[Rfam]
RNA sequence: GUGUUCAAUGAUGAUUUUUGUUUGCUGGAUUUCCUUUUGGAUAAUGAAGGCAUCUUUAGUCACUACCUCUUCUGAGACAC
Number, nucleotide and partner (000 for none) at each position: 001g080002u079003g078004u077005u000006c000007a000008a000009u000010g000011a000012u000013g000014a000015u000016u000017u000018u000019u000020g000021u000022u000023u000024g000025c000026u000027g000028g000029a000030u000031u000032u000033c000034c000035u000036u000037u000038u000039g000040g000041a000042u000043a000044a000045u000046g000047a000048a000049g000050g000051c000052a000053u000054c000055u000056u000057u000058a000059g000060u000061c000062a000063c000064u000065a000066c000067c000068u000069c000070u000071u000072c000073u000074g000075a000076g000077a004078c003079a002080c001